The record is a 57-nucleotide RNA from Desertifilum tharense, which matches "Nitrogen stress-induced RNA 1" in Rfam. A search with the family's covariance model found it, with a score of 60 bits. Rfam classes the family as a small RNA. On this family, see Ionescu et al., J Mol Biol 2010: "Heterocyst-specific transcription of NsiR1, a non-coding RNA encoded in a tandem array of direct repeats in cyanobacteria".
RNA sequence: UGGUAGAUGCACCCUGAUUUUGAUUCCCCCGGUCGGUGACAACUGGGGGUUUUUUAU
Numbered sequence: 001u002g003g004u005a006g007a008u009g010c011a012c013c014c015u016g017a018u019u020u021u022g023a024u025u026c027c028c029c030c031g032g033u034c035g036g037u038g039a040c041a042a043c044u045g046g047g048g049g050u051u052u053u054u055u056a057u
Stems, first nucleotide, its partner, number of pairs: 002013003026049008035040001